[Rfam]
RNA sequence: GCGCCUUGGAGGGAGGCGAGGCCACGCCCCAUAUAUAUAUAUAUAUAUAUAUAUAUGGGGCGUGGCCUCGCCUCCCUCCAAGGCGC
Numbered sequence: 001g002c003g004c005c006u007u008g009g010a011g012g013g014a015g016g017c018g019a020g021g022c023c024a025c026g027c028c029c030c031a032u033a034u035a036u037a038u039a040u041a042u043a044u045a046u047a048u049a050u051a052u053a054u055a056u057g058g059g060g061c062g063u064g065g066c067c068u069c070g071c072c073u074c075c076c077u078c079c080a081a082g083g084c085g086c
Base pairs, nucleotide, nucleotide: 001086002085003084004083005082006081007080009078010077011076012075013074014073015072016071017070018069019068020067021066022065023064024063025062026061027060028059029058030057031056032055033054034053